Notes
The record is a 108-nucleotide RNA sequence from [Clostridium] aminophilum, which matches "TPP riboswitch aptamer (THI element)" in Rfam.
RNA sequence: AAAUAAAUUCAGGGGAGCUUGUAUGGACAGGCUGAGAGGAAGGAAACACCUUCGACCCUUAUACCUGAUGUGGAUAAUGCCGCCGUAGGAAACACUUUCGCUCUGUUA
Numbered sequence: 001a002a003a004u005a006a007a008u009u010c011a012g013g014g015g016a017g018c019u020u021g022u023a024u025g026g027a028c029a030g031g032c033u034g035a036g037a038g039g040a041a042g043g044a045a046a047c048a049c050c051u052u053c054g055a056c057c058c059u060u061a062u063a064c065c066u067g068a069u070g071u072g073g074a075u076a077a078u079g080c081c082g083c084c085g086u087a088g089g090a091a092a093c094a095c096u097u098u099c100g101c102u103c104u105g106u107u108a
Stems, first nucleotide, its partner, number of pairs: 006096001008094001011059004017032005039053005064089004070083004